[Rfam]
RNA sequence: AGAUGAGGUAGAGGUCGCGAAUAUUAUAAGUAAGCGUGCAGAGGCGUUAAGAGCCGCCUGUGAAGCCGCCGAAAGGAAUAUCCGCCGAAGUCUGCGCCGCCGCUCCUACAUGCGCCGCAGACUGGGGCCGUUGCCGAACAGGCACGGAACUGUCACAGUGUACCGCAGGCUGCCAUUGCCUGCAGAAUUCUGCACUGUGUUGCGCUAUCUUAACA
Numbered sequence: 001a002g003a004u005g006a007g008g009u010a011g012a013g014g015u016c017g018c019g020a021a022u023a024u025u026a027u028a029a030g031u032a033a034g035c036g037u038g039c040a041g042a043g044g045c046g047u048u049a050a051g052a053g054c055c056g057c058c059u060g061u062g063a064a065g066c067c068g069c070c071g072a073a074a075g076g077a078a079u080a081u082c083c084g085c086c087g088a089a090g091u092c093u094g095c096g097c098c099g100c101c102g103c104u105c106c107u108a109c110a111u112g113c114g115c116c117g118c119a120g121a122c123u124g125g126g127g128c129c130g131u132u133g134c135c136g137a138a139c140a141g142g143c144a145c146g147g148a149a150c151u152g153u154c155a156c157a158g159u160g161u162a163c164c165g166c167a168g169g170c171u172g173c174c175a176u177u178g179c180c181u182g183c184a185g186a187a188u189u190c191u192g193c194a195c196u197g198u199g200u201u202g203c204g205c206u207a208u209c210u211u212a213a214c215a
Base pairs, nucleotide, nucleotide: 006210007209008208009207010206011205017085018084019083021081022080023079024078025077034069035068036067038066039065089123090122091121092120093119094118095117096116098114099113100112124151125150128147129146130145132144133143134142135141154199155198156197157196158195159194160193161192162191

Source information: A member of the RNA family "Lysine riboswitch aptamer" from Paenibacillus sp. FSL R7-0331, 215 nucleotides long. Rfam's curators write: Riboswitches are metabolite binding domains within certain messenger RNAs that serve as precision sensors for their corresponding targets. Lineage of the source: Bacteria > Bacillati > Bacillota > Bacilli > Paenibacillus.